[Rfam]
RNA sequence: CGUCGACACGCUUGAACUUUGUUUUUCCUGUGCAUUAUUCUAGGUGAGCAAAGAUUCAGGUGUGUUGACUA
Dot-bracket structure: .((((((.(((((((.((((.(((..(((............))).))).))))..))))))).))))))..
Numbered sequence: 001c002g003u004c005g006a007c008a009c010g011c012u013u014g015a016a017c018u019u020u021g022u023u024u025u026u027c028c029u030g031u032g033c034a035u036u037a038u039u040c041u042a043g044g045u046g047a048g049c050a051a052a053g054a055u056u057c058a059g060g061u062g063u064g065u066u067g068a069c070u071a
Stems, first nucleotide, its partner, number of pairs: 002069006009062007017053004022048003027044003

The family of this 71-nucleotide RNA sequence from Tribolium castaneum is "mir-87 microRNA precursor family". The source organism's lineage runs through Eukaryota, Pancrustacea, Eumetabola, Coleoptera and Tribolium. It is one of the family's seed sequences.